The record is a 78-nucleotide sequence from Crypturellus undulatus, which matches "Small nucleolar RNA SNORD69" in Rfam. It scores 52 bits against the family's covariance model. Rfam's curators write: snoRNA HBII-210 belongs to the C/D family of snoRNAs. It is the human orthologue of the mouse MBII-210 and is predicted to guide the 2'O-ribose methylation of large 28S rRNA on residue G4464.
[Rfam]
RNA sequence: UACACAAAGCAUAUGAUGAGAAAGCAUAAAAGCUGACUCCAUGUGAGGCAUAUUCAAUCCAACCCUGAGCUUUGUGUC
Numbered sequence: 001u002a003c004a005c006a007a008a009g010c011a012u013a014u015g016a017u018g019a020g021a022a023a024g025c026a027u028a029a030a031a032g033c034u035g036a037c038u039c040c041a042u043g044u045g046a047g048g049c050a051u052a053u054u055c056a057a058u059c060c061a062a063c064c065c066u067g068a069g070c071u072u073u074g075u076g077u078c
Stems, first nucleotide, its partner, number of pairs: 002077009